[Rfam]
RNA sequence: GGGGACCUACGGGGCCCUACAUCCCGGGCGGAUCGUCGCGAGGCGGGCGUCCGACACACAACGGAAGACAGGUA
Numbered sequence: 001g002g003g004g005a006c007c008u009a010c011g012g013g014g015c016c017c018u019a020c021a022u023c024c025c026g027g028g029c030g031g032a033u034c035g036u037c038g039c040g041a042g043g044c045g046g047g048c049g050u051c052c053g054a055c056a057c058a059c060a061a062c063g064g065a066a067g068a069c070a071g072g073u074a
Stems, first nucleotide, its partner, number of pairs: 001018004006014003027055001029053005
RNA: L2-Alphaproteobacteria ribosomal protein leader